[Rfam]
RNA sequence: UAAACUGAGGAGCGCUGCAACGAAUCACAGUUCGUGAGGCUCGGUUUAUGCGGAAAGUGUAACAACGGCGCUCGUUCAUU
Number, nucleotide and partner (000 for none) at each position: 001u000002a047003a046004a045005c044006u043007g042008a041009g000010g000011a000012g000013c000014g000015c000016u000017g000018c000019a000020a000021c034022g033023a032024a031025u030026c000027a000028c000029a000030g025031u024032u023033c022034g021035u000036g000037a000038g000039g000040c000041u008042c007043g006044g005045u004046u003047u002048a000049u000050g000051c000052g000053g000054a000055a000056a000057g000058u000059g000060u000061a000062a000063c000064a000065a000066c000067g000068g000069c000070g000071c000072u000073c000074g000075u000076u000077c000078a000079u000080u000
This 80-nucleotide RNA sequence from Nitrosomonas nitrosa belongs to the Rfam family "SAH (S-adenosyl-L-homocysteine) riboswitch aptamer".